Shown here is a 93-nucleotide RNA from Oryctes borbonicus, a member of the family "mir-2788 microRNA precursor family". The base pairs follow the family's consensus structure, which was predicted with RNAalifold.
RNA sequence: AUUUUAUGUUGAAGUAUUUUCGGGGUUUCUUAGCGGCAUUUGCCUCAAGUUCACCGCAAUGCCCUUGGAAAUCCCAAAAGACACUCAACACCU
Numbered sequence: 001a002u003u004u005u006a007u008g009u010u011g012a013a014g015u016a017u018u019u020u021c022g023g024g025g026u027u028u029c030u031u032a033g034c035g036g037c038a039u040u041u042g043c044c045u046c047a048a049g050u051u052c053a054c055c056g057c058a059a060u061g062c063c064c065u066u067g068g069a070a071a072u073c074c075c076a077a078a079a080g081a082c083a084c085u086c087a088a089c090a091c092c093u
Base pairs, nucleotide, nucleotide: 008089009088010087011086012085014082015081022075023074024073025072026071027070028069029068032065033064035063036062037061038060039059041058042057043056
Record summary: The source organism's lineage runs through Eukaryota, Panarthropoda, Arthropoda, Endopterygota and Oryctes. It scores 66 bits against the family's covariance model.